[Rfam]
RNA: Glycine riboswitch aptamer
RNA sequence: UGAUCCCGCGCGGGAGAGACCGAGUCCGGCUCGGCGCCGAAGGAGCAACUCCUCCCCGGAACCUCUCAGGCACCCGAACCGCGUGGUGGAG
Numbered sequence: 001u002g003a004u005c006c007c008g009c010g011c012g013g014g015a016g017a018g019a020c021c022g023a024g025u026c027c028g029g030c031u032c033g034g035c036g037c038c039g040a041a042g043g044a045g046c047a048a049c050u051c052c053u054c055c056c057c058g059g060a061a062c063c064u065c066u067c068a069g070g071c072a073c074c075c076g077a078a079c080c081g082c083g084u085g086g087u088g089g090a091g
Base pairs, nucleotide, nucleotide: 006086007085008084009083010082011081012080013079020034021033022032023031036071037070038069039067040066043065044064045063049059050058